[Rfam]
mir-31 microRNA precursor family: an 84-nucleotide RNA from Patiria miniata. Rfam links the family to the GO terms RISC complex and gene silencing by miRNA. The sequence is in the family's curated seed alignment. The family is grouped with related families in Rfam's "mir-31 microRNA precursor family".
RNA sequence: AGUGCCGAAGAGGCAAGAUGUUGGCAUAGCUGUGUCCAACGACAUAUUUUCAGCUGUGCCUACAUACUGCCAUUUUGUCACUUG
Numbered sequence: 001a002g003u004g005c006c007g008a009a010g011a012g013g014c015a016a017g018a019u020g021u022u023g024g025c026a027u028a029g030c031u032g033u034g035u036c037c038a039a040c041g042a043c044a045u046a047u048u049u050u051c052a053g054c055u056g057u058g059c060c061u062a063c064a065u066a067c068u069g070c071c072a073u074u075u076u077g078u079c080a081c082u083u084g
Base pairs, nucleotide, nucleotide: 004079006077007076008075009074010073012071013070014069015068018065019064020063023060024059025058026057027056028055029054030053